[Rfam]
RNA sequence: CGUCAUAAGGACUAGUAUUACCCUUAUGACGUCAUGUAGCAAGUAGCA
Number, nucleotide and partner (000 for none) at each position: 001c031002g030003u029004c028005a027006u026007a025008a024009g023010g022011a000012c000013u000014a000015g000016u000017a000018u000019u000020a000021c000022c010023c009024u008025u007026a006027u005028g004029a003030c002031g001032u000033c000034a000035u000036g000037u000038a000039g000040c000041a000042a000043g000044u000045a000046g000047c000048a000
Rfam assigns this 48-nucleotide sequence from Eubacteriaceae bacterium CHKCI005 to the family "ssNA-helicase RNA". Pairs were carried over by alignment from the consensus structure, which is taken from published work. The source organism's lineage runs through Bacteria, Bacillati, Bacillota, Clostridia and Eubacteriaceae. It is annotated as a small RNA.